Record summary:
The record is a 137-nucleotide sequence from Colidextribacter sp. OB.20, which matches "FMN riboswitch aptamer (RFN element)" in Rfam. A search with the family's covariance model found it, with a score of 108 bits. Taxonomically the source falls in Colidextribacter (Bacteria, Bacillota, Clostridia, Eubacteriales).
[Rfam]
RNA sequence: CGAUGUCUUCAGGGCGGGGUGAAACUCCCCACUGGCGGUAAAGUCCGCGACCGGGCGCCAAAGUAUUUGCGAUGGCGUCCGCUGACCCGGUGCAACUCCGGGACCAACGGUUACAGUCCGGAUGGAAGAAGAUGUGU
Numbered sequence: 001c002g003a004u005g006u007c008u009u010c011a012g013g014g015c016g017g018g019g020u021g022a023a024a025c026u027c028c029c030c031a032c033u034g035g036c037g038g039u040a041a042a043g044u045c046c047g048c049g050a051c052c053g054g055g056c057g058c059c060a061a062a063g064u065a066u067u068u069g070c071g072a073u074g075g076c077g078u079c080c081g082c083u084g085a086c087c088c089g090g091u092g093c094a095a096c097u098c099c100g101g102g103a104c105c106a107a108c109g110g111u112u113a114c115a116g117u118c119c120g121g122a123u124g125g126a127a128g129a130a131g132a133u134g135u136g137u
Stems, first nucleotide, its partner, number of pairs: 003135008017029003031117002033106002035048004043104002052081007086102005108120003